[Rfam]
RNA sequence: AUCCGAAAAAGGCAAACCCGGUGAAAGCCGGGGACGCAAAACUAUAGGGGCUACGUCCGGUCAGGGAUAUGCCAGCCAGCUGCCGAA
Dot-bracket structure: ...........((...((((((....))))))...))..(.((...(((((....(((......)))...)))..)))).)......
Numbered sequence: 001a002u003c004c005g006a007a008a009a010a011g012g013c014a015a016a017c018c019c020g021g022u023g024a025a026a027g028c029c030g031g032g033g034a035c036g037c038a039a040a041a042c043u044a045u046a047g048g049g050g051c052u053a054c055g056u057c058c059g060g061u062c063a064g065g066g067a068u069a070u071g072c073c074a075g076c077c078a079g080c081u082g083c084c085g086a087a
Stems, first nucleotide, its partner, number of pairs: 012037002017032006040081001042079002047077002049073003056067003
Rfam assigns this 87-nucleotide sequence from Paenibacillus flagellatus to the family "c-di-GMP-I riboswitch aptamer". Rfam links the family to the GO term cyclic-di-GMP binding. Pairs were carried over by alignment from the consensus structure, which is taken from published work.